Shown here is a 217-nucleotide sequence from Hafnia alvei, a member of the family "Manganese Mn2+ riboswitch aptamer (yybP-ykoY)".
A search with the family's covariance model found it, with a score of 49 bits.
Its family is annotated with manganese ion binding in the Gene Ontology.

RNA sequence: GCUUCCGUCAAUUUGGGGAGUAGCCGGCGUUCUUGCUGAUUAAUAUUCAGUUUUUGAACGCGCUCGUGUCAACAUACUCGUUCCUAGCAUGGAACGUGGUGCGAGCAGCCCGCUUGCUGAUUAUCAGCAUUUAAGCGCGGACAGGCGAGACCAUAGACACGUAGCUCCGUCGUAUGGUUGGGGGUGGGCUGCGUGUAUAUGGAACACCCGGCCGAGU
Dot-bracket structure: ...........................(((((.......................))))).((((((((((.......(((((........)))))))))))))))......((((................................................................................................)))).